Annotation
Shown here is a 72-nucleotide RNA from Parnassius apollo, a member of the family "Mammalian CPEB3 ribozyme". From the family's description: The mammalian CPEB3 ribozyme is a self cleaving RNA located in the second intron of the CPEB3 gene which belongs to a family of genes regulating messenger RNA polyadenylation.

[Rfam]
RNA sequence: AGCUGUUAAAUUCAUUGUAGAAGCGUGCUCGUCGCGACCCCUGCCAGCCCUUUUCAGGGCUGCAAUUCUACA
Numbered sequence: 001a002g003c004u005g006u007u008a009a010a011u012u013c014a015u016u017g018u019a020g021a022a023g024c025g026u027g028c029u030c031g032u033c034g035c036g037a038c039c040c041c042u043g044c045c046a047g048c049c050c051u052u053u054u055c056a057g058g059g060c061u062g063c064a065a066u067u068c069u070a071c072a
Stems, first nucleotide, its partner, number of pairs: 012037002016072007023035003045062007
The family has 14 seed sequences and 5,706 matches in Rfam 15.1. A search with the family's covariance model found it, with a score of 36 bits.